[Rfam]
RNA sequence: UUUCUACGGAACUUGGCACUGGAAGAAUUCACAGAUUGUAUUAGAAUCGUGGUUCUUUUAAUGCCAUAUUCCGUGGUGA
Number, nucleotide and partner (000 for none) at each position: 001u000002u000003u000004c076005u075006a074007c073008g072009g071010a070011a000012c000013u000014u066015g065016g064017c063018a062019c000020u060021g059022g058023a056024a000025g055026a054027a053028u000029u052030c051031a050032c049033a000034g047035a000036u000037u000038g000039u000040a000041u000042u000043a000044g000045a000046a000047u034048c000049g032050u031051g030052g029053u027054u026055c025056u023057u000058u022059u021060a020061a000062u018063g017064c016065c015066a014067u000068a000069u000070u010071c009072c008073g007074u006075g005076g004077u000078g000079a000
Rfam assigns this 79-nucleotide RNA sequence from Acanthoscelides obtectus to the family "mir-263 microRNA precursor family".
Lineage of the source: Eukaryota > Mandibulata > Altocrustacea > Bruchini > Acanthoscelides.
Rfam 15.1 lists 368 matches to the family in 211 species.
Pairs were carried over by alignment from the consensus structure, which was predicted with RNAalifold.
The family is grouped with related families in Rfam's "mir-182 clan".
For this family Rfam cites "Direct sequencing and expression analysis of a large number of miRNAs in Aedes aegypti and a multi-species survey of novel mosquito miRNAs" (Li et al., BMC Genomics, 2009).